[Rfam]
RNA sequence: UCGUCCGUCAAGCGGUCUCAUGAUCCUGGGCAACUACCUCGUGACAUCCAAAGGGAAGGCACGGAGAUGAUAGCGUGGUUUUUAUGGAUGUCUUUUGUCCACGCGGGAAAAGCCCUCCUUACUUGCGCUCCAACGACGCAUGGUGGAGAGGACACAAAAACUAGUCCUUGUU
Numbered sequence: 001u002c003g004u005c006c007g008u009c010a011a012g013c014g015g016u017c018u019c020a021u022g023a024u025c026c027u028g029g030g031c032a033a034c035u036a037c038c039u040c041g042u043g044a045c046a047u048c049c050a051a052a053g054g055g056a057a058g059g060c061a062c063g064g065a066g067a068u069g070a071u072a073g074c075g076u077g078g079u080u081u082u083u084a085u086g087g088a089u090g091u092c093u094u095u096u097g098u099c100c101a102c103g104c105g106g107g108a109a110a111a112g113c114c115c116u117c118c119u120u121a122c123u124u125g126c127g128c129u130c131c132a133a134c135g136a137c138g139c140a141u142g143g144u145g146g147a148g149a150g151g152a153c154a155c156a157a158a159a160a161c162u163a164g165u166c167c168u169u170g171u172u
Stems, first nucleotide, its partner, number of pairs: 007031003011027002014025004037069001038066003042061002047058001049054001087166003090161002093159006113151002115148004124140004129135001
RNA: Ascomycota telomerase RNA, nucleotides 954 to 1125
Organism: Ustilaginoidea virens